[Rfam]
RNA sequence: GUCAACUACCCCUCCCUAAAGGGCGGAGCUUGAAAAAGCUAAGUUGACCAGACUAAGCCGCUAGUCAGAGUGGCUACGCCACCCCGAGGUCGUUAAGACUUACCAGCAGAUGCUUCCUGAGUCUGCUGCUCUAAAAGGCUUUAAUCAAGCUGGGGCAAGGUAAAACCCCGAAGGUUUUAGUCGUUGCUGGCAACAGUAAGAGCCGCUGGGUGGCUUUGUCGAAGGGAGAUGGC
Numbered sequence: 001g002u003c004a005a006c007u008a009c010c011c012c013u014c015c016c017u018a019a020a021g022g023g024c025g026g027a028g029c030u031u032g033a034a035a036a037a038g039c040u041a042a043g044u045u046g047a048c049c050a051g052a053c054u055a056a057g058c059c060g061c062u063a064g065u066c067a068g069a070g071u072g073g074c075u076a077c078g079c080c081a082c083c084c085c086g087a088g089g090u091c092g093u094u095a096a097g098a099c100u101u102a103c104c105a106g107c108a109g110a111u112g113c114u115u116c117c118u119g120a121g122u123c124u125g126c127u128g129c130u131c132u133a134a135a136a137g138g139c140u141u142u143a144a145u146c147a148a149g150c151u152g153g154g155g156c157a158a159g160g161u162a163a164a165a166c167c168c169c170g171a172a173g174g175u176u177u178u179a180g181u182c183g184u185u186g187c188u189g190g191c192a193a194c195a196g197u198a199a200g201a202g203c204c205g206c207u208g209g210g211u212g213g214c215u216u217u218g219u220c221g222a223a224g225g226g227a228g229a230u231g232g233c
Stems, first nucleotide, its partner, number of pairs: 001048007010028001012025001015022002029038003051220003055216001056075007078214007086206001088204001100134002104128008114228005137182004143176004151170005
Rfam assigns this 233-nucleotide sequence from Thioploca ingrica to the family "HNH endonuclease-associated RNA and ORF (HEARO) RNA". A reference for the family is Weinberg et al. (2009), "Exceptional structured noncoding RNAs revealed by bacterial metagenome analysis", Nature. The family's RNA type in Rfam is non-coding RNA gene.